[Rfam]
RNA sequence: AUAACCUUUUAAAGAUUGCCCAGAGAGGCAAAGAAGGGUGCUGUGAUUUGUACGGAAGUAGUCUAUACACUACCUCUCUACCUUAUCAUACCCAUCUUAAGCCUCCCUAACCAAAUUUAGGGAGGCUUUUCUUAU
Numbered sequence: 001a002u003a004a005c006c007u008u009u010u011a012a013a014g015a016u017u018g019c020c021c022a023g024a025g026a027g028g029c030a031a032a033g034a035a036g037g038g039u040g041c042u043g044u045g046a047u048u049u050g051u052a053c054g055g056a057a058g059u060a061g062u063c064u065a066u067a068c069a070c071u072a073c074c075u076c077u078c079u080a081c082c083u084u085a086u087c088a089u090a091c092c093c094a095u096c097u098u099a100a101g102c103c104u105c106c107c108u109a110a111c112c113a114a115a116u117u118u119a120g121g122g123a124g125g126c127u128u129u130u131c132u133u134a135u
Stems, first nucleotide, its partner, number of pairs: 003039001005037005016031005050081003054077003058073005099128012
The record is a 135-nucleotide RNA sequence from Kurthia sp. 11kri321, which matches "PyrR binding site" in Rfam.
Taxonomically the source falls in Kurthia (Bacteria, Bacillati, Bacillota, Bacilli).
The match comes from Rfam's covariance-model search (64 bits).
Pairs were carried over by alignment from the consensus structure, which is taken from published work.
On this family, see Bonner et al., Nucleic Acids Res 2001: "Molecular recognition of pyr mRNA by the Bacillus subtilis attenuation regulatory protein PyrR".
Rfam 15.1 lists 1,498 matches to the family in 930 species.
By type it is a cis-regulatory element.